[Rfam]
RNA: Guanidine-II riboswitch aptamer (mini-ykkC)
Organism: Fuerstiella marisgermanici
RNA sequence: AAGUGGGGACGACCCCACCGCUCUAUUUUCCACCGGGGACGGCCCUG
Numbered sequence: 001a002a003g004u005g006g007g008g009a010c011g012a013c014c015c016c017a018c019c020g021c022u023c024u025a026u027u028u029u030c031c032a033c034c035g036g037g038g039a040c041g042g043c044c045c046u047g
Stems, first nucleotide, its partner, number of pairs: 003018006034047005